[Rfam]
RNA sequence: CCAAAGGCUCUUUUAAGAGCCACCCACCCUGUCAGUGAAAAAA
Dot-bracket structure: .....((((((....))))))......................

This 43-nucleotide RNA from Salmo salar belongs to the Rfam family "Histone 3' UTR stem-loop". For this family Rfam cites "NMR structure and dynamics of the RNA-binding site for the histone mRNA stem-loop binding protein" (DeJong et al., RNA, 2002). The family's RNA type in Rfam is cis-regulatory element. The family's consensus secondary structure is taken from published work.